Rfam assigns this 97-nucleotide RNA from Alicyclobacillus acidoterrestris to the family "c-di-GMP-I riboswitch aptamer". NCBI's taxonomy places the organism under Bacteria, Bacillati, Bacillota, Alicyclobacillaceae, Alicyclobacillus. It scores 70 bits against the family's covariance model.
[Rfam]
RNA sequence: CAACGAAAAAGGCAAACCUUCGGAAACGAAGUGACGCAAAGCUACAGGGGCUACCUCUGCAGAUUUCGGUCUGCGGAUAUGCCAGCCAGCUACCGUG
Numbered sequence: 001c002a003a004c005g006a007a008a009a010a011g012g013c014a015a016a017c018c019u020u021c022g023g024a025a026a027c028g029a030a031g032u033g034a035c036g037c038a039a040a041g042c043u044a045c046a047g048g049g050g051c052u053a054c055c056u057c058u059g060c061a062g063a064u065u066u067c068g069g070u071c072u073g074c075g076g077a078u079a080u081g082c083c084a085g086c087c088a089g090c091u092a093c094c095g096u097g
Base pairs, nucleotide, nucleotide: 012037013036018031019030020029021028022027040091041090042089043088047087048086049083050082051081056077057076058075059074060073061072062071063070064069